[Rfam]
This 46-nucleotide sequence from Prosthecobacter gellanilyticus belongs to the Rfam family "Acido-Lenti-1 RNA". Taxonomically the source falls in Prosthecobacter (Bacteria, Verrucomicrobiota, Verrucomicrobiia, Verrucomicrobiaceae).
RNA sequence: CCUGGGGUUAAAACCCCAGGCUUUAAUGCCGCGCACCUUUGGUGCU
Numbered sequence: 001c002c003u004g005g006g007g008u009u010a011a012a013a014c015c016c017c018a019g020g021c022u023u024u025a026a027u028g029c030c031g032c033g034c035a036c037c038u039u040u041g042g043u044g045c046u
Base pairs, nucleotide, nucleotide: 001020002019003018004017005016006015007014008013033045034044035043036042037041
Notes:
By type it is a small RNA. A search with the family's covariance model found it, with a score of 38 bits.